[Rfam]
RNA: MIR8565 microRNA precursor family
RNA sequence: CCCACACCCAUGUCUGUAGGACCCCAAAGGAUCACCAUUAAAUUUAACACAGAUCUCUAGCAAAGUUAUCACAUGGGUGUGAGACUUGAUUUUUUAGAGAUCUGUGUUAUAUUUAAUGGUGAUCCUUUGGGGUUCUAUAUACAUGAGUGUGAG
Numbered sequence: 001c002c003c004a005c006a007c008c009c010a011u012g013u014c015u016g017u018a019g020g021a022c023c024c025c026a027a028a029g030g031a032u033c034a035c036c037a038u039u040a041a042a043u044u045u046a047a048c049a050c051a052g053a054u055c056u057c058u059a060g061c062a063a064a065g066u067u068a069u070c071a072c073a074u075g076g077g078u079g080u081g082a083g084a085c086u087u088g089a090u091u092u093u094u095u096a097g098a099g100a101u102c103u104g105u106g107u108u109a110u111a112u113u114u115a116a117u118g119g120u121g122a123u124c125c126u127u128u129g130g131g132g133u134u135c136u137a138u139a140u141a142c143a144u145g146a147g148u149g150u151g152a153g
Base pairs, nucleotide, nucleotide: 003151004150005149006148007147009145010144011143012142013141015139016138017137018136019135020134021133022132023131024130025129026128027127028126030124031123032122034120035119036118037117038116039115040114041113042112043111045109046108047107048106049105050104051103052102053101054100055099056098057097058096059095060094062093063092064091065090066089067088068087069082070081071080072079073078